[Rfam]
RNA sequence: UUGGUGUGAAAGACAUGGGUAGUGAGAUGUAACAAAUUGUAAUUAAUUUAACUAACAUCUCACUACUUUGUCUUUGGCGCUAAU
Numbered sequence: 001u002u003g004g005u006g007u008g009a010a011a012g013a014c015a016u017g018g019g020u021a022g023u024g025a026g027a028u029g030u031a032a033c034a035a036a037u038u039g040u041a042a043u044u045a046a047u048u049u050a051a052c053u054a055a056c057a058u059c060u061c062a063c064u065a066c067u068u069u070g071u072c073u074u075u076g077g078c079g080c081u082a083a084u
Stems, first nucleotide, its partner, number of pairs: 009075007017068003021064009
This 84-nucleotide RNA sequence from Tetranychus urticae belongs to the Rfam family "mir-71 microRNA precursor family". Gene Ontology terms of the family: RISC complex and miRNA-mediated post-transcriptional gene silencing. Rfam's curators put it in the seed alignment. Pairs were carried over by alignment from the consensus structure, which was predicted with RNAalifold.